[Rfam]
RNA sequence: AGUAUUGUGAGAUUUCGUGCGGAGGACCUGAAGGCAAAGCUCGGAACAGGUGGCUGUAACCAUGUUGGCUGGUAAGAUGGGAUAACCUUGCAAAGGAUGGGGAUGUCCAAUACCACUCUGUAUCUUAUUAGUUAUGAGGACUGGCUUCGAGUGAAAGGCGAGG
Dot-bracket structure: .(.(((....))).).............(.....(...((((((..(((..........((.(....(((.(((((((.((((..(((..........)))...)))).............))))))).)))...).)).)))...))))))....).....)
RNA: Group II catalytic intron D1-D4-3